[Rfam]
RNA: U2 spliceosomal RNA
Organism: Cladophialophora immunda
RNA sequence: UUCCCAGCUUUGCCAACUGGCUUAGAUCAAGUGUAGUAUCUGUUCUUUUCAGUUUAAUCUCUGAAAUGACACCACGUGUGUCUGACUUUGAUUAAAUUUAUUUUUGCACGCCGCUCGAGACUCUCUGUGCUUGCACGGAGCAUCUCGAGCACCGUGUCCGAGGCCUCACACUGCCGCCUUGUGACGCGAACAAAA
Number, nucleotide and partner (000 for none) at each position: 001u000002u000003c000004c000005c000006a000007g000008c025009u024010u000011u000012g021013c020014c019015a000016a000017c000018u000019g014020g013021c012022u000023u000024a009025g008026a000027u000028c000029a000030a000031g000032u000033g000034u000035a000036g000037u000038a000039u000040c000041u000042g000043u000044u000045c000046u000047u066048u065049u064050c063051a062052g061053u000054u000055u000056a000057a000058u000059c000060u000061c052062u051063g050064a049065a048066a047067u000068g082069a081070c080071a079072c078073c000074a000075c000076g000077u000078g072079u071080g070081u069082c068083u000084g000085a000086c000087u000088u000089u000090g000091a000092u000093u000094a000095a000096a000097u000098u000099u000100a000101u000102u000103u000104u000105u000106g000107c000108a000109c000110g000111c000112c000113g150114c149115u148116c147117g146118a145119g144120a143121c000122u000123c000124u000125c000126u137127g136128u135129g134130c000131u000132u000133g000134c129135a128136c127137g126138g000139a000140g000141c000142a000143u120144c119145u118146c117147g116148a115149g114150c113151a000152c000153c188154g187155u186156g185157u184158c183159c181160g180161a179162g178163g177164c176165c000166u000167c000168a000169c000170a000171c000172u000173g000174c000175c000176g164177c163178c162179u161180u160181g159182u000183g158184a157185c156186g155187c154188g153189a000190a000191c000192a000193a000194a000195a000